[Rfam]
RNA sequence: UGAUCCGGGCGAGUGCCACACGGCCAGCUCCCUGUGAAUCCCCUAGGGCUUGACCGCAGCAAGGGUAGCGGGUCGUAGCGGCGCGAUGUGGAUUGCUCGCCCUU
Number, nucleotide and partner (000 for none) at each position: 001u000002g000003a000004u000005c000006c000007g102008g101009g100010c099011g098012a097013g096014u095015g000016c091017c090018a089019c088020a087021c085022g084023g082024c081025c000026a000027g000028c000029u000030c000031c000032c000033u000034g000035u000036g000037a000038a000039u000040c000041c000042c000043c000044u000045a000046g000047g000048g000049c000050u000051u000052g000053a000054c000055c000056g000057c000058a000059g000060c000061a000062a000063g000064g000065g000066u000067a000068g000069c000070g000071g000072g000073u000074c000075g000076u000077a000078g000079c000080g000081g024082c023083g000084c022085g021086a000087u020088g019089u018090g017091g016092a000093u000094u000095g014096c013097u012098c011099g010100c009101c008102c007103u000104u000
RNA: Bacteroidales small SRP